The family of this 72-nucleotide sequence is "DUF3800-IX RNA". About the family: Actinobacteria, Firmicutes (1 example), Nitrospirae, Proteobacteria, Verrucomicrobia (1 example). Rfam's curators put it in the seed alignment.
RNA sequence: GACCCUGUUUCCGAAUUGUCACCGUAUGGUGCGCGUUCCAAGCUAACGUUUGGAUAGGAGGCAGGGUCGAUU
Dot-bracket structure: (((((((.((((....(((((((....)))).))).(((((........)))))..)))).)))))))....
Numbered sequence: 001g002a003c004c005c006u007g008u009u010u011c012c013g014a015a016u017u018g019u020c021a022c023c024g025u026a027u028g029g030u031g032c033g034c035g036u037u038c039c040a041a042g043c044u045a046a047c048g049u050u051u052g053g054a055u056a057g058g059a060g061g062c063a064g065g066g067u068c069g070a071u072u
Stems, first nucleotide, its partner, number of pairs: 001068007009060004017035003020031004037054005